[Rfam]
A member of the RNA family "S15-Flavobacteria ribosomal protein leader", 68 nucleotides long. The base pairs follow the family's consensus structure, which is taken from published work. By type it is a cis-regulatory leader. It is one of the family's seed sequences.
RNA sequence: UAUUUUUGCAGCCGUAUUCCGAAAGACGGAACACAUACAUAACAAUUAUUUACAUAAAUAUUAGCAUG
Numbered sequence: 001u002a003u004u005u006u007u008g009c010a011g012c013c014g015u016a017u018u019c020c021g022a023a024a025g026a027c028g029g030a031a032c033a034c035a036u037a038c039a040u041a042a043c044a045a046u047u048a049u050u051u052a053c054a055u056a057a058a059u060a061u062u063a064g065c066a067u068g
Base pairs, nucleotide, nucleotide: 014034015033017031018030019029
Dot-bracket structure: .............((.(((.........))).))..................................